Shown here is a 184-nucleotide sequence from Furfurilactobacillus rossiae, a member of the family "Lysine riboswitch aptamer". Rfam describes the family as follows. Riboswitches are metabolite binding domains within certain messenger RNAs that serve as precision sensors for their corresponding targets. It scores 108 bits against the family's covariance model. The source organism's lineage runs through Bacteria, Bacillota, Bacilli, Lactobacillaceae and Furfurilactobacillus rossiae. Pairs were carried over by alignment from the consensus structure, which is taken from published work.

[Rfam]
RNA sequence: AUCGAAUGAAGAGGUUGCGACAAUCAUGAGUCGCCAGGUCGAGAACGUACAGGUUCUGUAACGCUUGGUUAAAGGGUGCGUCGCCGAAAUGAGUUACUGCUGUAUCAGUAUCUUGUUGGGACGUUGAUGAAUAAUCAACGAACUGUCGUGGUAAAUAAAAACGCCACGGAGCGCUAUCUAACGA
Dot-bracket structure: .....(.(.((.....(((((...(.......(((((((.......................)))))))......)...)))))...((((((.(((((......))))).))))))((..(((((((.....)))))))..)).(((((((..........)))))))....)).).).....